[Rfam]
RNA: Small nucleolar RNA snR60/Z15/Z230/Z193/J17
RNA sequence: GUUGGUCACGUGAUGAUUAGAAGCAUAGUUCAGAUGAUAAUCUAUGUGAUUAUGAUAUUUCAAUAGUCUUUCGCUCCUAUCUGACGACCCCA
Numbered sequence: 001g002u003u004g005g006u007c008a009c010g011u012g013a014u015g016a017u018u019a020g021a022a023g024c025a026u027a028g029u030u031c032a033g034a035u036g037a038u039a040a041u042c043u044a045u046g047u048g049a050u051u052a053u054g055a056u057a058u059u060u061c062a063a064u065a066g067u068c069u070u071u072c073g074c075u076c077c078u079a080u081c082u083g084a085c086g087a088c089c090c091c092a
Base pairs, nucleotide, nucleotide: 004089005088006087007086